[Rfam]
RNA sequence: UUUUUUAGGGAAAAUUUGGCCUUCCAGCAAGGGGAGGCCAGGAAUUCCUC
Numbered sequence: 001u002u003u004u005u006u007a008g009g010g011a012a013a014a015u016u017u018g019g020c021c022u023u024c025c026a027g028c029a030a031g032g033g034g035a036g037g038c039c040a041g042g043a044a045u046u047c048c049u050c
Stems, first nucleotide, its partner, number of pairs: 008050003012046002015042011